The record is an 85-nucleotide sequence from Oceanobacillus iheyensis, which matches "c-di-GMP-I riboswitch aptamer" in Rfam.
The family's consensus secondary structure is taken from published work.
The source organism's lineage runs through Bacteria, Bacillati, Caryophanales, Bacillaceae and Oceanobacillus iheyensis.
Rfam describes the family as follows. GEMM was predicted in a large-scale screen for bacterial structured RNA regulatory elements. Genes associated with GEMM are involved in a diverse array of functions, including chemotaxis regulation, signal transduction, secretion and chitin.
RNA sequence: CUCAGAAAAAGGCAAACCUAUUGAAAGAUGGGGACGCAAAGUCACAGAUCUAAGGUAUUUUUACUAAGAUGGCUGGACUAUCUGG
Numbered sequence: 001c002u003c004a005g006a007a008a009a010a011g012g013c014a015a016a017c018c019u020a021u022u023g024a025a026a027g028a029u030g031g032g033g034a035c036g037c038a039a040a041g042u043c044a045c046a047g048a049u050c051u052a053a054g055g056u057a058u059u060u061u062u063a064c065u066a067a068g069a070u071g072g073c074u075g076g077a078c079u080a081u082c083u084g085g
Base pairs, nucleotide, nucleotide: 012037013036017032018031019030020029021028022027040079041078042077043076045075046074047073048070049069050068055064056063057062